[Rfam]
RNA sequence: UAAGCUAGUUUAAUGUUUUCUAUACAGACCCUGGCUUUUCUUAAAUUUUAUAUAUUGGAAAGCCCAUGUUUGUAUUGGAAACUGCUGGUUUC
Numbered sequence: 001u002a003a004g005c006u007a008g009u010u011u012a013a014u015g016u017u018u019u020c021u022a023u024a025c026a027g028a029c030c031c032u033g034g035c036u037u038u039u040c041u042u043a044a045a046u047u048u049u050a051u052a053u054a055u056u057g058g059a060a061a062g063c064c065c066a067u068g069u070u071u072g073u074a075u076u077g078g079a080a081a082c083u084g085c086u087g088g089u090u091u092c
Stems, first nucleotide, its partner, number of pairs: 002091008015082006022075008033064008